Source information
The family of this 273-nucleotide sequence from Phyllostomus discolor is "HIF-1 alpha IRES". From the family's description: This family represents the hypoxia-inducible factor 1-alpha internal ribosome entry site. HIF-1a is a subunit of the HIF-1 transcription factor, which induces transcription of several genes involved in the cellular response to hypoxia. The HIF-1a IRES allows translation to be maintained under hypoxic cell conditions that inhibit cap-dependent translation. The literature on the family includes a 2002 paper in Mol Biol Cell by Lang et al., "Hypoxia-inducible factor-1alpha mRNA contains an internal ribosome entry site that allows efficient translation during normoxia and hypoxia". Its family is annotated with ribosome binding in the Gene Ontology. It scores 208 bits against the family's covariance model.
RNA sequence: CUAGUCUGAGGGGACGCGAGGAUCACUCUUGUUGUGGCUUGAGCCAGUCGUCGGGCCGGGCCUUGACAAGCAGCCCGAGGGAAGGCUCUUCUAAGCCCAGCCUGGAGUCUUGUGAUUGCCGCCUGCUCCUCCUGCCUCUGAUCUCACGAGGGAGUUCGCACCUCUGGACCUGCCUCUCCUUCUCUCCCCGCGUGUGGAGGGAGCCAGCGCUUAGGCCGGAGAGAGCCUGGGGGGCGACGGCCGUGAAGGCAUCGCGGUGACCCACUCGCCAUG
Numbered sequence: 001c002u003a004g005u006c007u008g009a010g011g012g013g014a015c016g017c018g019a020g021g022a023u024c025a026c027u028c029u030u031g032u033u034g035u036g037g038c039u040u041g042a043g044c045c046a047g048u049c050g051u052c053g054g055g056c057c058g059g060g061c062c063u064u065g066a067c068a069a070g071c072a073g074c075c076c077g078a079g080g081g082a083a084g085g086c087u088c089u090u091c092u093a094a095g096c097c098c099a100g101c102c103u104g105g106a107g108u109c110u111u112g113u114g115a116u117u118g119c120c121g122c123c124u125g126c127u128c129c130u131c132c133u134g135c136c137u138c139u140g141a142u143c144u145c146a147c148g149a150g151g152g153a154g155u156u157c158g159c160a161c162c163u164c165u166g167g168a169c170c171u172g173c174c175u176c177u178c179c180u181u182c183u184c185u186c187c188c189c190g191c192g193u194g195u196g197g198a199g200g201g202a203g204c205c206a207g208c209g210c211u212u213a214g215g216c217c218g219g220a221g222a223g224a225g226c227c228u229g230g231g232g233g234g235c236g237a238c239g240g241c242c243g244u245g246a247a248g249g250c251a252u253c254g255c256g257g258u259g260a261c262c263c264a265c266u267c268g269c270c271a272u273g
Stems, first nucleotide, its partner, number of pairs: 001013002016032006034061002084156003088151001129150003133146001170207003174203004183198003217240001219238001223235001